[Rfam]
RNA sequence: GUUGAAGUUCCAUCUAUAAAUGGAUAAGACUUUGGUCUUAGUAUAUAUUAGUUCUUGAAAGUAAAGGAGUAAUAAAAAAUUUCUUGAUUAUAUCGAGAGGUUUGUUAUUGCUCCUUU
Numbered sequence: 001g002u003u004g005a006a007g008u009u010c011c012a013u014c015u016a017u018a019a020a021u022g023g024a025u026a027a028g029a030c031u032u033u034g035g036u037c038u039u040a041g042u043a044u045a046u047a048u049u050a051g052u053u054c055u056u057g058a059a060a061g062u063a064a065a066g067g068a069g070u071a072a073u074a075a076a077a078a079a080u081u082u083c084u085u086g087a088u089u090a091u092a093u094c095g096a097g098a099g100g101u102u103u104g105u106u107a108u109u110g111c112u113c114c115u116u117u
Stems, first nucleotide, its partner, number of pairs: 009024005063117013077103003081099005
Annotation
This 117-nucleotide RNA sequence from Eriolobus florentinus belongs to the Rfam family "Plastid-psbA-1 3UTR RNA". Rfam classes the family as a cis-regulatory element. The organism belongs to Eriolobus, within Eukaryota. About the family: Plastid psbA-1 is a non-coding RNA (ncRNA) present in plastids. It was identified in inverted repeat sequences in the 3 prime untranslate region (3UTR) of photosystem II quinone-binding protein (psbA). The literature on the family includes a 2023 paper in Plant Commun by Richter et al., "Retrograde signaling in plants: A critical review focusing on the GUN pathway and beyond". The sequence is in the family's curated seed alignment.